[Rfam]
RNA: tRNA
Organism: Bacillus subtilis
RNA sequence: GGGCCUGUAGCUCAGCUGGUUAGAGCGCACGCCUGAUAAGCGUGAGGUCGAUGGUUCGAGUCCAUUCAGGCCCA
Numbered sequence: 001g002g003g004c005c006u007g008u009a010g011c012u013c014a015g016c017u018g019g020u021u022a023g024a025g026c027g028c029a030c031g032c033c034u035g036a037u038a039a040g041c042g043u044g045a046g047g048u049c050g051a052u053g054g055u056u057c058g059a060g061u062c063c064a065u066u067c068a069g070g071c072c073c074a
Stems, first nucleotide, its partner, number of pairs: 001073007010026004028044005050066005